[Rfam]
The family of this 586-nucleotide part of an RNA from Aeromicrobium flavum is "Bacterial large subunit ribosomal RNA". Rfam 15.1 lists 51,934 matches to the family in 10,816 species.
RNA sequence: CGCGCGGCAGGACGGAAAGACCCCGGGACCUUUACUAUAGUUUGGUAUUGGUGUUUGGUUCGACUUGUGUAGGAUAGGUGGGAGACUGUGAAGCUUGGACGCCAGUUCAGGUGGAGUCAACGUUGAAAUACCACUCUGGUCGUACUAGAUAUCUAACCUAGGUCCGUUAUCCGGAUCAGGGACAGUGCCUGAUGGGUAGUUUAACUGGGGCGGUUGCCUCCUAAAAUGUAACGGAGGCGCUCAAAGGUUCCCUCAGCCUGGUUGGCAAUCAGGUUUCGAGUGUAAGUGCACAAGGGAGCUUGACUGUGAGAGUGACAGCUCGAGCAGGGACGAAAGUCGGAACUAGUGAUCCGGCGCUGGCAUGUGGAAGCGGCGUCGCUCAACGGAUAAAAGGUACCCCGGGGAUAACAGGCUGAUCUUCCCCAAGAGUCCAUAUCGACGGGAUGGUUUGGCACCUCGAUGUCGGCUCGUCGCAUCCUGGGGCCGUAGCAGGUCCCAAGGGUUGGGCUGUUCGCCCAUUAAAGCGGCACGCGAGCUGGGUUUAGAACGUCGUGAGACAGUUCGGUCCCUAUCCGCCGCGCGCGUA
Numbered sequence: 001c002g003c004g005c006g007g008c009a010g011g012a013c014g015g016a017a018a019g020a021c022c023c024c025g026g027g028a029c030c031u032u033u034a035c036u037a038u039a040g041u042u043u044g045g046u047a048u049u050g051g052u053g054u055u056u057g058g059u060u061c062g063a064c065u066u067g068u069g070u071a072g073g074a075u076a077g078g079u080g081g082g083a084g085a086c087u088g089u090g091a092a093g094c095u096u097g098g099a100c101g102c103c104a105g106u107u108c109a110g111g112u113g114g115a116g117u118c119a120a121c122g123u124u125g126a127a128a129u130a131c132c133a134c135u136c137u138g139g140u141c142g143u144a145c146u147a148g149a150u151a152u153c154u155a156a157c158c159u160a161g162g163u164c165c166g167u168u169a170u171c172c173g174g175a176u177c178a179g180g181g182a183c184a185g186u187g188c189c190u191g192a193u194g195g196g197u198a199g200u201u202u203a204a205c206u207g208g209g210g211c212g213g214u215u216g217c218c219u220c221c222u223a224a225a226a227u228g229u230a231a232c233g234g235a236g237g238c239g240c241u242c243a244a245a246g247g248u249u250c251c252c253u254c255a256g257c258c259u260g261g262u263u264g265g266c267a268a269u270c271a272g273g274u275u276u277c278g279a280g281u282g283u284a285a286g287u288g289c290a291c292a293a294g295g296g297a298g299c300u301u302g303a304c305u306g307u308g309a310g311a312g313u314g315a316c317a318g319c320u321c322g323a324g325c326a327g328g329g330a331c332g333a334a335a336g337u338c339g340g341a342a343c344u345a346g347u348g349a350u351c352c353g354g355c356g357c358u359g360g361c362a363u364g365u366g367g368a369a370g371c372g373g374c375g376u377c378g379c380u381c382a383a384c385g386g387a388u389a390a391a392a393g394g395u396a397c398c399c400c401g402g403g404g405a406u407a408a409c410a411g412g413c414u415g416a417u418c419u420u421c422c423c424c425a426a427g428a429g430u431c432c433a434u435a436u437c438g439a440c441g442g443g444a445u446g447g448u449u450u451g452g453c454a455c456c457u458c459g460a461u462g463u464c465g466g467c468u469c470g471u472c473g474c475a476u477c478c479u480g481g482g483g484c485c486g487u488a489g490c491a492g493g494u495c496c497c498a499a500g501g502g503u504u505g506g507g508c509u510g511u512u513c514g515c516c517c518a519u520u521a522a523a524g525c526g527g528c529a530c531g532c533g534a535g536c537u538g539g540g541u542u543u544a545g546a547a548c549g550u551c552g553u554g555a556g557a558c559a560g561u562u563c564g565g566u567c568c569c570u571a572u573c574c575g576c577c578g579c580g581c582g583c584g585u586a
Stems, first nucleotide, its partner, number of pairs: 001582008010574003014569002022403006028395005034200004041192002044189004050153010061142005067136001077135005084118003093112008157180003161177006203215004216238006239384001241341002247299006253279002256274006280289002304327004310321003329338003352378007360371002412453003416450001417447002420444004427437002464539001465537004469531001470528005477502002480497006504518005545563004549558003
Dot-bracket structure: ((((((((.(((.((......(((((((((((.((((...((.((((..((((((((((.(((((.(.........(((((..(((......((((((((....))))))))...)))............)))))).))))).))))))))))...(((.((((((.....))))))))).....)))).))....))))..((((.....))))((((((...........))))))(.((....((((((((.((((((.......))))))...))((......))....))))))....((((..(((......)))..)))).(((....))).))..........(((((((.((........))))))))).....)......)))))..))))))........(((.(((.((((...((.......))...)))).))..))))..........(((((((((((..((.((((((......))))))...)).(((((.....))))).....)))))..)..)))).).....(((((((....))).))))....))..)))))))))))....